[Rfam]
RNA sequence: UUGGAGUGGGACCUCCCAUCGAACUCACCUCUUGCCUUUUACCAGAUGUGACCGUGGGAUUGGCCCAACAGACUCCAUUCAAACAAUCUUUGGCACUUCCUCAUCUGGAGCU
Number, nucleotide and partner (000 for none) at each position: 001u000002u000003g076004g075005a074006g073007u000008g000009g066010g065011a000012c063013c062014u059015c058016c057017c056018a055019u000020c000021g000022a000023a000024c000025u051026c050027a049028c048029c000030u046031c045032u044033u000034g000035c000036c000037u000038u000039u000040u000041a000042c000043c000044a032045g031046a030047u000048g028049u027050g026051a025052c000053c000054g000055u018056g017057g016058g015059a014060u000061u000062g013063g012064c000065c010066c009067a000068a000069c000070a000071g000072a000073c006074u005075c004076c003077a000078u000079u000080c000081a000082a000083a000084c000085a000086a000087u000088c000089u000090u000091u000092g000093g000094c000095a000096c000097u110098u109099c108100c107101u000102c000103a000104u000105c000106u000107g100108g099109a098110g097111c000112u000
RNA: U5 spliceosomal RNA